Rfam assigns this 99-nucleotide sequence from Psychrobacillus sp. BL-248-WT-3 to the family "Guanidine-I riboswitch aptamer". Rfam's curators write: This family represents a conserved RNA structure found upstream of the ykkC and yxkD genes in Bacillus subtilis and related genes in other bacteria. Taxonomically the source falls in Psychrobacillus (Bacteria, Bacillati, Bacillota, Bacilli). Pairs were carried over by alignment from the consensus structure.

[Rfam]
RNA sequence: UUGAAUGUUUUCUAGGGUUCCGCAACUGUCAAUGUUGGUCUGGACCGAGAGAAAACUCACAGCAUUGCUGUGUCACGGAAGGAUAAAAGCCUGGGAGAA
Numbered sequence: 001u002u003g004a005a006u007g008u009u010u011u012c013u014a015g016g017g018u019u020c021c022g023c024a025a026c027u028g029u030c031a032a033u034g035u036u037g038g039u040c041u042g043g044a045c046c047g048a049g050a051g052a053a054a055a056c057u058c059a060c061a062g063c064a065u066u067g068c069u070g071u072g073u074c075a076c077g078g079a080a081g082g083a084u085a086a087a088a089g090c091c092u093g094g095g096a097g098a099a
Stems, first nucleotide, its partner, number of pairs: 007056006015046002020043002022040001023037004058072006074094001076097001080092003